[Rfam]
RNA sequence: UAAUUUGAUUUCACCGGGCGUCUGAUCGAGUAACUGAUCAGAGCAUGACUGGGUGAAUUGCUGGAACUCCUUAGAGCCUUGAUGUACGACAACGUGGCUGGAAACGGUGAGCGUGACCGUUCUGAAAAACGUCAAGGAUUGGACAAUCAGCAGCCAAGCACCUGUAGGGAAACCUUGGUGAAGGUUCAACGACUAGGAUAGACGACCUAAUGGAGACUUCUGAUGGUUAUGAAAUCCGUACUCCGUAAACGGCGGGGGAAGCGCCCAGCUCCUAGUAUACCUAGGAUGAAGAUAUAGUCUUAUCAUUAGCGAAAGUUAAUG
Numbered sequence: 001u002a003a004u005u006u007g008a009u010u011u012c013a014c015c016g017g018g019c020g021u022c023u024g025a026u027c028g029a030g031u032a033a034c035u036g037a038u039c040a041g042a043g044c045a046u047g048a049c050u051g052g053g054u055g056a057a058u059u060g061c062u063g064g065a066a067c068u069c070c071u072u073a074g075a076g077c078c079u080u081g082a083u084g085u086a087c088g089a090c091a092a093c094g095u096g097g098c099u100g101g102a103a104a105c106g107g108u109g110a111g112c113g114u115g116a117c118c119g120u121u122c123u124g125a126a127a128a129a130c131g132u133c134a135a136g137g138a139u140u141g142g143a144c145a146a147u148c149a150g151c152a153g154c155c156a157a158g159c160a161c162c163u164g165u166a167g168g169g170a171a172a173c174c175u176u177g178g179u180g181a182a183g184g185u186u187c188a189a190c191g192a193c194u195a196g197g198a199u200a201g202a203c204g205a206c207c208u209a210a211u212g213g214a215g216a217c218u219u220c221u222g223a224u225g226g227u228u229a230u231g232a233a234a235u236c237c238g239u240a241c242u243c244c245g246u247a248a249a250c251g252g253c254g255g256g257g258g259a260a261g262c263g264c265c266c267a268g269c270u271c272c273u274a275g276u277a278u279a280c281c282u283a284g285g286a287u288g289a290a291g292a293u294a295u296a297g298u299c300u301u302a303u304c305a306u307u308a309g310c311g312a313a314a315g316u317u318a319a320u321g
Stems, first nucleotide, its partner, number of pairs: 004025002007022003011018002029035001049268004054263002059152006068143003153185002161177001189300001191299005270286006306319005
Shown here is a 321-nucleotide RNA sequence from Exiguobacterium artemiae, a member of the family "Group I catalytic intron".
The family's consensus secondary structure is taken from published work.
A search with the family's covariance model found it, with a score of 75 bits.
Group I catalytic introns are large self-splicing ribozymes.